[Rfam]
RNA: Group II catalytic intron D1-D4-3
Organism: Candidatus Venteria ishoeyi
RNA sequence: CUUGGGGUGACCCAUACACUGAAGGAAGCCAGACUGCAAAAGCCGGUACUGACGUACAGGAACUGGAUAGGAGGCUAUGAGGCCGGAUGAGGUAGCAUUUCAUACCGAUGUCCAAAACUCAAAGGUUUUGAGAAGGUCAAAAUAGUAGAUCCAGCAGGAAUCGGCAGAAGGAAGAAGUU
Numbered sequence: 001c002u003u004g005g006g007g008u009g010a011c012c013c014a015u016a017c018a019c020u021g022a023a024g025g026a027a028g029c030c031a032g033a034c035u036g037c038a039a040a041a042g043c044c045g046g047u048a049c050u051g052a053c054g055u056a057c058a059g060g061a062a063c064u065g066g067a068u069a070g071g072a073g074g075c076u077a078u079g080a081g082g083c084c085g086g087a088u089g090a091g092g093u094a095g096c097a098u099u100u101c102a103u104a105c106c107g108a109u110g111u112c113c114a115a116a117a118c119u120c121a122a123a124g125g126u127u128u129u130g131a132g133a134a135g136g137u138c139a140a141a142a143u144a145g146u147a148g149a150u151c152c153a154g155c156a157g158g159a160a161u162c163g164g165c166a167g168a169a170g171g172a173a174g175a176a177g178u179u
Stems, first nucleotide, its partner, number of pairs: 003014004028179001030177001037171001042165005047159001049157003063154006074146003078141001081138004085113004091106004